[Rfam]
RNA sequence: GUCCGCAAUAAGGCGGCUUAUGCUGAGCGUAAUACCCACAGCGUACGGGCUAGAACCCCGAUCGGACUUCUUUAAGGAGAAAACAACAUG
Number, nucleotide and partner (000 for none) at each position: 001g018002u000003c016004c015005g014006c013007a000008a000009u000010a000011a000012g000013g006014c005015g004016g003017c000018u001019u045020a044021u043022g042023c041024u040025g039026a000027g000028c000029g000030u000031a000032a000033u000034a000035c000036c000037c000038a000039c025040a024041g023042c022043g021044u020045a019046c060047g059048g058049g057050c000051u000052a000053g000054a000055a000056c000057c049058c048059c047060g046061a000062u000063c000064g000065g000066a000067c000068u000069u000070c000071u000072u000073u000074a000075a000076g000077g000078a000079g000080a000081a000082a000083a000084c000085a000086a000087c000088a000089u000090g000
RNA: freshwater-2 RNA